[Rfam]
RNA sequence: GGAUGUGAGGACAACCUGGUAGAGACCUCUAUCACCCCAUUGAUGACCUGGGUUGAUUUGGCUGAUCUGGCUGGCUAGGUGUGUGUCCCCUUCCUCCCUCAUCACUCUAUUGCAUCCCUCCUAAGGCUGCACGCUCUGUUGCAGAGCACAACCUUCCCCGAUAGAGAGGGACCUGUUCAUCAGCCAAGGCUAUACAGUAGCUGCACUGCCCUGCUAGAACCUCCAGACAAGUUCAGAGAGGGCAGUAAGGCUGCAGCAUCCCUCCACUGCCUUUGUUGAUGCACCAAGCUGCCUCACCCAAA
Numbered sequence: 001g002g003a004u005g006u007g008a009g010g011a012c013a014a015c016c017u018g019g020u021a022g023a024g025a026c027c028u029c030u031a032u033c034a035c036c037c038c039a040u041u042g043a044u045g046a047c048c049u050g051g052g053u054u055g056a057u058u059u060g061g062c063u064g065a066u067c068u069g070g071c072u073g074g075c076u077a078g079g080u081g082u083g084u085g086u087c088c089c090c091u092u093c094c095u096c097c098c099u100c101a102u103c104a105c106u107c108u109a110u111u112g113c114a115u116c117c118c119u120c121c122u123a124a125g126g127c128u129g130c131a132c133g134c135u136c137u138g139u140u141g142c143a144g145a146g147c148a149c150a151a152c153c154u155u156c157c158c159c160g161a162u163a164g165a166g167a168g169g170g171a172c173c174u175g176u177u178c179a180u181c182a183g184c185c186a187a188g189g190c191u192a193u194a195c196a197g198u199a200g201c202u203g204c205a206c207u208g209c210c211c212u213g214c215u216a217g218a219a220c221c222u223c224c225a226g227a228c229a230a231g232u233u234c235a236g237a238g239a240g241g242g243c244a245g246u247a248a249g250g251c252u253g254c255a256g257c258a259u260c261c262c263u264c265c266a267c268u269g270c271c272u273u274u275g276u277u278g279a280u281g282c283a284c285c286a287a288g289c290u291g292c293c294u295c296a297c298c299c300a301a302a
Stems, first nucleotide, its partner, number of pairs: 001108003005102006014092001018090002024087003028083001030081004035074002037070003042067003047061002115170002118166003121138001124135001126134002139161003146157001148155001200251003206245002213243002221238003272302003277296003281292003
Background:
Rfam assigns this 302-nucleotide RNA from Chaetura pelagica to the family "7SK RNA". The literature on the family includes a 2002 paper in Curr Biol by Blencowe, "Transcription: surprising role for an elusive small nuclear RNA". Lineage of the source: Eukaryota > Metazoa > Sauropsida > Apodidae > Chaetura. Rfam 15.1 lists 49,373 matches to the family in 668 species. From the family's description: 7SK was discovered as an abundant small nuclear RNA in the mid-70s but a possible function has only recently been suggested. Two independent studies have found that 7SK RNA binds the CDK9/cyclin T complex (known as elongation factor P-TEFb). Rfam classes the family as a non-coding RNA gene. Clan: 7SK clan.